[Rfam]
RNA: msiK RNA
RNA sequence: GACCCCUGCCUUUUACUCGGAUCGUCCGGCACGUUCCUGCCGGUGAAGGGACCAGAUC
Numbered sequence: 001g002a003c004c005c006c007u008g009c010c011u012u013u014u015a016c017u018c019g020g021a022u023c024g025u026c027c028g029g030c031a032c033g034u035u036c037c038u039g040c041c042g043g044u045g046a047a048g049g050g051a052c053c054a055g056a057u058c
Stems, first nucleotide, its partner, number of pairs: 009050007026043006